A member of the RNA family "Tryptophan operon leader" from Kluyvera cryocrescens, 93 nucleotides long.
Rfam classes the family as a cis-regulatory leader.
The literature on the family includes a 1982 paper in Annu Rev Genet by Kolter and Yanofsky, "Attenuation in amino acid biosynthetic operons".
It scores 70 bits against the family's covariance model.
Rfam links the family to the GO terms transcriptional attenuation by ribosome and tryptophan biosynthetic process.
About the family: At least 6 amino acid operons are known to be regulated by attenuation. In each a leader sequence of 150-200 bp is found upstream of the first gene in the operon. This leader sequence can assume two different secondary structures known as the terminator and the anti-terminator structure. In each case the leader also codes for very short peptide sequence that is rich in the end product amino acid of the operon.
RNA sequence: GGCGGUUGGUGGCGUACUUCCCAGUAGGGCGGAGUCAUCACGUCUGCGUUAAGCAAACAGAUACCCAGCCCGCCAAUGAGCGGGCUUUUUAUU
Numbered sequence: 001g002g003c004g005g006u007u008g009g010u011g012g013c014g015u016a017c018u019u020c021c022c023a024g025u026a027g028g029g030c031g032g033a034g035u036c037a038u039c040a041c042g043u044c045u046g047c048g049u050u051a052a053g054c055a056a057a058c059a060g061a062u063a064c065c066c067a068g069c070c071c072g073c074c075a076a077u078g079a080g081c082g083g084g085c086u087u088u089u090u091a092u093u
Base pairs, nucleotide, nucleotide: 009041010040011039012038014035015034017032018031020029021028022027067086068085069084070083071082072081073080074078